[Rfam]
Description
Erse small RNA: a 252-nucleotide RNA from [Enterobacter] lignolyticus. It scores 188 bits against the family's covariance model. A reference for the family is Chen et al. (2012), "Esre: a novel essential non-coding RNA in Escherichia coli", FEBS Lett. NCBI's taxonomy places the organism under Bacteria, Gammaproteobacteria, Enterobacteriaceae, Pluralibacter, [Enterobacter] lignolyticus.
RNA sequence: CCUGCCGAACUGCUGGCGCCCUACACCGGCGAUAUCGCCGCCGAGGGCGUCAGUAAAGCGCUGCGGGGCGGCGCAAUGUUCCUCAAACGCGGUCUUCAGCGCCAGCAGCGCUAUGUUGCGGAAGCAAUCACCGAAGAGUGGCGCAUGGCGCCGGGGCCGUUGGAAGUCGCGUGGUUUGCCGAAGAGACGGCAGCGGUUGAACGCGCCGUAGAGGCCUUCAGCAAACGACUGGAAAAACUGGAGGGGAAAUGA
Number, nucleotide and partner (000 for none) at each position: 001c244002c243003u242004g000005c240006c000007g081008a080009a079010c078011u000012g054013c053014u052015g051016g050017c000018g000019c047020c046021c045022u044023a000024c000025a000026c000027c040028g039029g038030c037031g036032a000033u000034a000035u000036c031037g030038c029039c028040g027041c000042c000043g000044a022045g021046g020047g019048c000049g000050u016051c015052a014053g013054u012055a000056a000057a000058g000059c000060g000061c000062u075063g074064c073065g072066g000067g000068g000069c000070g000071g000072c065073g064074c063075a062076a000077u000078g010079u009080u008081c007082c000083u000084c000085a000086a000087a000088c211089g000090c208091g207092g206093u205094c000095u203096u000097c000098a000099g144100c143101g142102c141103c140104a139105g000106c000107a000108g000109c000110g000111c000112u000113a000114u000115g128116u127117u126118g125119c124120g000121g000122a000123a000124g119125c118126a117127a116128u115129c000130a000131c000132c000133g000134a000135a000136g000137a000138g000139u104140g103141g102142c101143g100144c099145a000146u000147g000148g179149c178150g177151c000152c174153g000154g172155g000156g000157c169158c000159g167160u166161u165162g000163g000164a000165a161166g160167u159168c000169g157170c000171g000172u154173g000174g152175u000176u000177u150178g149179c148180c000181g000182a000183a000184g000185a000186g198187a197188c196189g000190g194191c000192a000193g000194c190195g000196g188197u187198u186199g000200a000201a000202c000203g095204c000205g093206c092207c091208g090209u000210a000211g088212a000213g000214g000215c000216c232217u231218u000219c000220a000221g000222c227223a000224a000225a000226c000227g222228a000229c000230u000231g217232g216233a000234a000235a000236a000237a000238c000239u000240g005241g000242a003243g002244g001245g000246g000247a000248a000249a000250u000251g000252a000